[Rfam]
RNA: XIST 3' intron conserved motif
Organism: Rousettus aegyptiacus
RNA sequence: UUGACCUUUUCUAUUUUUCAAUCACUCACAGAGGGUGGGAUAGGAGGCAGAGUGAAAGAAAAGGUCGA
Numbered sequence: 001u002u003g004a005c006c007u008u009u010u011c012u013a014u015u016u017u018u019c020a021a022u023c024a025c026u027c028a029c030a031g032a033g034g035g036u037g038g039g040a041u042a043g044g045a046g047g048c049a050g051a052g053u054g055a056a057a058g059a060a061a062a063g064g065u066c067g068a
Stems, first nucleotide, its partner, number of pairs: 001068012022055006